[Rfam]
RNA sequence: CAGAAAUGGGAGCUCCUUUGCGGCCAAAGAAAUCAUUUCAGAUCGUCUUAUUUCUCAUAGAAGCAGUCGUCCUUUGGAGUGAAUGGAGCUCCGAAUUCUU
Numbered sequence: 001c002a003g004a005a006a007u008g009g010g011a012g013c014u015c016c017u018u019u020g021c022g023g024c025c026a027a028a029g030a031a032a033u034c035a036u037u038u039c040a041g042a043u044c045g046u047c048u049u050a051u052u053u054c055u056c057a058u059a060g061a062a063g064c065a066g067u068c069g070u071c072c073u074u075u076g077g078a079g080u081g082a083a084u085g086g087a088g089c090u091c092c093g094a095a096u097u098c099u100u
Stems, first nucleotide, its partner, number of pairs: 007094001009092008018083001022080001025077001027075003

The family of this 100-nucleotide RNA sequence from Amborella trichopoda is "MIR319 microRNA precursor family". Rfam 15.1 lists 168 matches to the family in 79 species. It scores 60 bits against the family's covariance model.